RNA: Molybdenum/Tungsten riboswitch aptamer (Moco RNA motif)
RNA sequence: AAACGCAUAUUACUCCGAGCUUGUUGCGCCUACGUUAAUUUUUAAUAUGGCGGCAAGCCUGUUAGCAUGAAUGAUUCGUGCUACGCCGGAUACACUGGAAACGGUUUAUCCGCUCGUGCUUAGAAAGGUGUCAGAAUGCAGCAAACU
Number, nucleotide and partner (000 for none) at each position: 001a000002a000003a000004c000005g000006c138007a000008u000009a000010u000011u133012a131013c130014u000015c128016c127017g000018a000019g058020c057021u056022u055023g054024u053025u052026g000027c000028g051029c050030c049031u000032a000033c000034g046035u045036u044037a043038a000039u000040u000041u000042u000043u037044a036045a035046u034047a000048u000049g030050g029051c028052g025053g024054c023055a022056a021057g020058c019059c000060u000061g000062u000063u083064a082065g081066c080067a079068u078069g077070a076071a000072u000073g000074a000075u000076u070077c069078g068079u067080g066081c065082u064083a063084c000085g000086c000087c112088g111089g110090a109091u108092a107093c000094a105095c104096u103097g102098g000099a000100a000101a000102c097103g096104g095105u094106u000107u092108a091109u090110c089111c088112g087113c123114u122115c000116g000117u000118g000119c000120u000121u000122a114123g113124a000125a000126a000127g016128g015129u000130g013131u012132c000133a011134g000135a000136a000137u000138g006139c000140a000141g000142c000143a000144a000145a000146c000147u000